RNA: Cyano-1 RNA
RNA sequence: UCAUUUGUGAGGAAGGCUUCUUCACGGAGUGGAAACUAGGCAACACGCCCAACGAGAAGCCGAGA
Numbered sequence: 001u002c003a004u005u006u007g008u009g010a011g012g013a014a015g016g017c018u019u020c021u022u023c024a025c026g027g028a029g030u031g032g033a034a035a036c037u038a039g040g041c042a043a044c045a046c047g048c049c050c051a052a053c054g055a056g057a058a059g060c061c062g063a064g065a
Base pairs, nucleotide, nucleotide: 015061016060017059018058019057020056022055023054026050027049029046030045031044